The record is a 131-nucleotide RNA from Streptomyces sp. SID5910, which matches "Streptomyces RNA 5676" in Rfam. Lineage of the source: Bacteria > Actinomycetota > Kitasatosporales > Streptomycetaceae > Streptomyces.
RNA sequence: AGAUGAGAGAUACACCCCGCCCACGGGGGACCGUGGGCGGAUCCCGGGCCGGGGCCUCCCCAGCUUCGACCUGGUCGUGCCUCGCGCACACAACCGGGACCCGAGGGUUCCGGGUCUCCUCACCGAUCGGA
Numbered sequence: 001a002g003a004u005g006a007g008a009g010a011u012a013c014a015c016c017c018c019g020c021c022c023a024c025g026g027g028g029g030a031c032c033g034u035g036g037g038c039g040g041a042u043c044c045c046g047g048g049c050c051g052g053g054g055c056c057u058c059c060c061c062a063g064c065u066u067c068g069a070c071c072u073g074g075u076c077g078u079g080c081c082u083c084g085c086g087c088a089c090a091c092a093a094c095c096g097g098g099a100c101c102c103g104a105g106g107g108u109u110c111c112g113g114g115u116c117u118c119c120u121c122a123c124c125g126a127u128c129g130g131a
Base pairs, nucleotide, nucleotide: 004122005121006120007119009118010117017040018039019038020037021036022035023034024033025032026031044074045073046072047071048070050068051067052066053065054064055063077089078088079087080086094113095112096111097110098109099108100107101106123130124129
Identified by deep sequencing of transcriptome at the end of exponential growth phase. Appears longer on northern blot than sequencing transcript. This indicates processing step. Streptomyces specific. A search with the family's covariance model found it, with a score of 136 bits. Rfam classes the family as a small RNA.